[Rfam]
RNA sequence: AAUGAUGGUUUUGUCGCUCUUCAUUAUAGUUCUUAUGGUACUUUUUGUGUAUACUUAAAAAGCUCUAUAAUCUCUACAGUGGUUUUACCCACUACAGAAAUUAUAGAGCC
Numbered sequence: 001a002a003u004g005a006u007g008g009u010u011u012u013g014u015c016g017c018u019c020u021u022c023a024u025u026a027u028a029g030u031u032c033u034u035a036u037g038g039u040a041c042u043u044u045u046u047g048u049g050u051a052u053a054c055u056u057a058a059a060a061a062g063c064u065c066u067a068u069a070a071u072c073u074c075u076a077c078a079g080u081g082g083u084u085u086u087a088c089c090c091a092c093u094a095c096a097g098a099a100a101u102u103a104u105a106g107a108g109c110c
Base pairs, nucleotide, nucleotide: 001025002024003023004022005021008017009016028043029042031040062109063108064107065106067104068103069102070101071100073098074097078093079092080091081090082089
Streptococcus RNA 266: a 110-nucleotide RNA from Streptococcus thermophilus.
By type it is a small RNA.
Taxonomically the source falls in Streptococcus thermophilus (Bacteria, Bacilli, Lactobacillales, Streptococcaceae).
A reference for the family is Acebo et al. (2012), "Identification of 88 regulatory small RNAs in the TIGR4 strain of the human pathogen Streptococcus pneumoniae", RNA.